malK-I RNA: a 182-nucleotide RNA from Colidextribacter sp. OB.20.
The match comes from Rfam's covariance-model search (138 bits).
It is annotated as a cis-regulatory element.
The base pairs follow the family's consensus structure, which is taken from published work.
NCBI's taxonomy places the organism under Bacteria, Bacillati, Bacillota, Eubacteriales, Colidextribacter.

[Rfam]
RNA sequence: UCCACGGGUCGGGCGGCUACUCCAUCACUAUAGCCCCCGGCACCAAACAAAAGGAGGAAAAAAACCGCUGCGGCUUGCGGUGCGGCAGUGUGGAGACCUGCCGUAAAGCCCCUGGGGACUUGCUUCCUCAGGGCGAGGUGGAUGUGGCGGAGGCCGCUCCAUCAAAGCCGAACGCUAUGGCA
Numbered sequence: 001u002c003c004a005c006g007g008g009u010c011g012g013g014c015g016g017c018u019a020c021u022c023c024a025u026c027a028c029u030a031u032a033g034c035c036c037c038c039g040g041c042a043c044c045a046a047a048c049a050a051a052a053g054g055a056g057g058a059a060a061a062a063a064a065c066c067g068c069u070g071c072g073g074c075u076u077g078c079g080g081u082g083c084g085g086c087a088g089u090g091u092g093g094a095g096a097c098c099u100g101c102c103g104u105a106a107a108g109c110c111c112c113u114g115g116g117g118a119c120u121u122g123c124u125u126c127c128u129c130a131g132g133g134c135g136a137g138g139u140g141g142a143u144g145u146g147g148c149g150g151a152g153g154c155c156g157c158u159c160c161a162u163c164a165a166a167g168c169c170g171a172a173c174g175c176u177a178u179g180g181c182a
Stems, first nucleotide, its partner, number of pairs: 006043001008041006015035005065080004071170006081105008090097002108134004114128003137163006146155003